Nucleotides: 053
Base pairs, nucleotide, nucleotide: 011033012032013031014030015029016028017027
Number, partner (000 for none) and nucleotide at each position: 001000a002000u003000u004000u005000u006000u007000u008000u009000u010000a011033u012032c013031g014030a015029u016028a017027u018000a019000g020000a021000a022000c023000a024000c025000u026000c027017a028016u029015g030014u031013c032012g033011a034000u035000a036000a037000a038000a039000u040000g041000a042000u043000u044000u045000a046000u047000u048000c049000a050000a051000a052000a053000u